[Rfam]
RNA: Small nucleolar RNA SNORA42/SNORA80 family
Nucleotides: 137
Base pairs, nucleotide, nucleotide: 001059003057004056005054006053008051015048016047017046018045019044022041023040024039025037026036072130073129074128075127076126077125083120084119088115090111091110092109093108094107095106
Number, partner (000 for none) and nucleotide at each position: 001059g002000a003057a004056u005054g006053g007000u008051a009000a010000u011000g012000g013000a014000u015048u016047u017046a018045u019044g020000u021000u022041g023040g024039g025037c026036c027000u028000u029000u030000c031000u032000c033000u034000g035000u036026g037025g038000g039024c040023c041022u042000c043000u044019c045018a046017u047016a048015g049000u050000g051008u052000u053006c054005c055000c056004a057003u058000g059001c060000c061000a062000g063000a064000a065000u066000a067000a068000a069000u070000u071000g072130u073129g074128g075127c076126c077125u078000c079000g080000a081000a082000c083120c084119a085000u086000u087000g088115c089000c090111c091110a092109g093108c094107c095106u096000u097000c098000u099000u100000a101000c102000c103000u104000g105000u106095g107094g108093g109092c110091u111090g112000u113000g114000a115088g116000c117000a118000c119084u120083g121000a122000a123000g124000g125077g126076g127075g128074u129073u130072g131000u132000a133000c134000a135000g136000u137000g